[Rfam]
Bacterial RNase P class A: a 386-nucleotide RNA sequence from Leptolyngbya sp. FACHB-16. Lineage of the source: Bacteria > Cyanobacteriota > Leptolyngbyales > Leptolyngbyaceae > Leptolyngbya. The match comes from Rfam's covariance-model search (251 bits).

RNA sequence: AGAGGAGGCGAGGCGGCUGCGGAUUCCGUUGGAAUCUGAGGAAAGUCCGGGCUCCCGAAAGACCAGACUUGCUGGGUAACGCCCAGUGCGGGUGACCGUGAGGAUAGUGCCACAGAAACAUACCGCCGAUGGGGCUUCGGCCUACAGGUAAGGGUGCAAGGGUGCGGUAAGAGCGCACCAGCAACAUCGAGAGGUGUUGGCUCGGUAAACCCCGGUUGGGAGCAAGGUCGAAGGGGCAACGGUUGGUCUUUUACCGGCUCCGAGGAACGGGGCAACUCGUUCCUGCCAAUCCGCUUGAGGUGUUCGGUAACGGGCAUCCCAGAUAGAUAGCUGCCCAUGGGGGCUUGCCCCCGGGAACAGAACCCGGCUUAUGUCCGCCUCUUCCC
Dot-bracket structure: (((((.((..((((((((.((((((((...))))))))....[[[.[[[[[((((........[.(((.(((((((.....)))))(((((....)))).)((...(((((...........(((((..((((.......))))..)))..)).......((((((.......)))))).((((((((....))))))).)..)))..))))))))).))))...((........(.((((................(((((.]...))))).....)))).).......))......((((((((....))))))))..........)))))))...........................]]]]]]]].)..)).)))))....